RNA sequence: GCAUUGCACUCGCCAUGCCGAGUGAUGCGAUUGCGCCGGACGAACACCCCACGGGCGGGAUGAGCAACAUCGGC
Dot-bracket structure: (((....(((((......)))))..)))......(((((.....((.(((......))).)).......)))))

Rfam assigns this 74-nucleotide RNA sequence to the family "Burkholderiales-2 RNA". Pairs were carried over by alignment from the consensus structure, which is taken from published work.